RNA sequence: ACCUUGGAGUGCGACUGGCGUGGCCGGACUGACCGGCGUGGAGCAUAUGAGCGACAUCGACCGUCUGGGUGUCCUUC
Numbered sequence: 001a002c003c004u005u006g007g008a009g010u011g012c013g014a015c016u017g018g019c020g021u022g023g024c025c026g027g028a029c030u031g032a033c034c035g036g037c038g039u040g041g042a043g044c045a046u047a048u049g050a051g052c053g054a055c056a057u058c059g060a061c062c063g064u065c066u067g068g069g070u071g072u073c074c075u076u077c
Stems, first nucleotide, its partner, number of pairs: 003049001005047001009046004015040001017065004024036004054072005

Shown here is a 77-nucleotide RNA sequence from Arthrobacter terricola, a member of the family "ZMP/ZTP riboswitch aptamer (pfl RNA motif)". Rfam links the family to the GO terms one-carbon metabolic process and regulation of purine nucleotide biosynthetic process. NCBI's taxonomy places the organism under Bacteria, Bacillati, Micrococcales, Micrococcaceae, Arthrobacter.